[Rfam]
RNA: Lysine riboswitch aptamer
Organism: Dorea phocaeensis
RNA sequence: GGACUUGAUAGAGGUGCGAAUUUCAUCAGUAUUCAGGGAGCGAGAGUUUGGAAGACUGUUUUCUGAAGAAAGGGGAAUUUGCCGAAGAGAUGAAAUGAUUCCAAGUUUGAUCUCUGGGACGUGGGCAGAAGAUGUCACGGACUGUCACAGCAGUGGAGCGCUAUCAGAAUA
Numbered sequence: 001g002g003a004c005u006u007g008a009u010a011g012a013g014g015u016g017c018g019a020a021u022u023u024c025a026u027c028a029g030u031a032u033u034c035a036g037g038g039a040g041c042g043a044g045a046g047u048u049u050g051g052a053a054g055a056c057u058g059u060u061u062u063c064u065g066a067a068g069a070a071a072g073g074g075g076a077a078u079u080u081g082c083c084g085a086a087g088a089g090a091u092g093a094a095a096u097g098a099u100u101c102c103a104a105g106u107u108u109g110a111u112c113u114c115u116g117g118g119a120c121g122u123g124g125g126c127a128g129a130a131g132a133u134g135u136c137a138c139g140g141a142c143u144g145u146c147a148c149a150g151c152a153g154u155g156g157a158g159c160g161c162u163a164u165c166a167g168a169a170u171a
Stems, first nucleotide, its partner, number of pairs: 006166006016082009032067008086115006093108004116143002120139003124136004145156004